[Rfam]
RNA: TPP riboswitch aptamer (THI element)
RNA sequence: UUGAAUGACUCGGGGUGCCCCUUUUCACAAAGGGCUGAGAAAUACCCGUACCACCUGAUCUGGAUAAUGCCAGCGUAGGGAAGUCAGAUGCCUGCCCG
Numbered sequence: 001u002u003g004a005a006u007g008a009c010u011c012g013g014g015g016u017g018c019c020c021c022u023u024u025u026c027a028c029a030a031a032g033g034g035c036u037g038a039g040a041a042a043u044a045c046c047c048g049u050a051c052c053a054c055c056u057g058a059u060c061u062g063g064a065u066a067a068u069g070c071c072a073g074c075g076u077a078g079g080g081a082a083g084u085c086a087g088a089u090g091c092c093u094g095c096c097c098g
Stems, first nucleotide, its partner, number of pairs: 006086005011048004016042001017035004054079004060073004